[Rfam]
RNA sequence: GAAUGAAGUGAUGAUUAGUUGUUUCCCUAUUGAUUUGAUUGCCUGGAUGAUGGCAUCUAUGUAUUAGCUCUAUCUGAUCAUUC
Numbered sequence: 001g002a003a004u005g006a007a008g009u010g011a012u013g014a015u016u017a018g019u020u021g022u023u024u025c026c027c028u029a030u031u032g033a034u035u036u037g038a039u040u041g042c043c044u045g046g047a048u049g050a051u052g053g054c055a056u057c058u059a060u061g062u063a064u065u066a067g068c069u070c071u072a073u074c075u076g077a078u079c080a081u082u083c
Base pairs, nucleotide, nucleotide: 002082003081004080005079037057040055041054042053043052
Overview: Shown here is an 83-nucleotide RNA sequence from Arachis hypogaea, a member of the family "Small nucleolar RNA Z102/R77". The family's consensus secondary structure was predicted with PFOLD. Rfam 15.1 lists 1,346 matches to the family in 224 species. Its family is annotated with RNA processing and nucleolus in the Gene Ontology. Taxonomically the source falls in Arachis (Eukaryota, Viridiplantae, rosids, Fabaceae).